[Rfam]
RNA sequence: AUCUGGAAGGUGGGGGCCAUAGAAGGAGCGUUCACGUCGCGGCCCCUGUCAGGUAUCUGUUUACCUGCAAAUCCUUCU
Numbered sequence: 001a002u003c004u005g006g007a008a009g010g011u012g013g014g015g016g017c018c019a020u021a022g023a024a025g026g027a028g029c030g031u032u033c034a035c036g037u038c039g040c041g042g043c044c045c046c047u048g049u050c051a052g053g054u055a056u057c058u059g060u061u062u063a064c065c066u067g068c069a070a071a072u073c074c075u076u077c078u
Stems, first nucleotide, its partner, number of pairs: 013046006021078007028040003050067006
A member of the RNA family "Mammalian CPEB3 ribozyme" from Laticauda laticaudata, 78 nucleotides long. Pairs were carried over by alignment from the consensus structure, which is taken from published work. A search with the family's covariance model found it, with a score of 75 bits.